[Rfam]
Description:
The record is a 95-nucleotide RNA sequence from Spinacia oleracea, which matches "Small nucleolar RNA Z43" in Rfam. The family has 7 seed sequences and 859 matches in Rfam 15.1. The source organism's lineage runs through Eukaryota, Viridiplantae, Streptophytina, Spermatophyta and Spinacia. It is annotated as a C/D-box small nucleolar RNA.
RNA sequence: GGGCGAUGACGAAGAUAUAUUGGUCUCGUUCGUCAUAAGAGCGAUUCAAUUCGCCUUGAUGACCAUUCUUAUAUCACCACCCAUAAGCCGAGUCC
Numbered sequence: 001g002g003g004c005g006a007u008g009a010c011g012a013a014g015a016u017a018u019a020u021u022g023g024u025c026u027c028g029u030u031c032g033u034c035a036u037a038a039g040a041g042c043g044a045u046u047c048a049a050u051u052c053g054c055c056u057u058g059a060u061g062a063c064c065a066u067u068c069u070u071a072u073a074u075c076a077c078c079a080c081c082c083a084u085a086a087g088c089c090g091a092g093u094c095c
Base pairs, nucleotide, nucleotide: 001095002094003093004092043057044056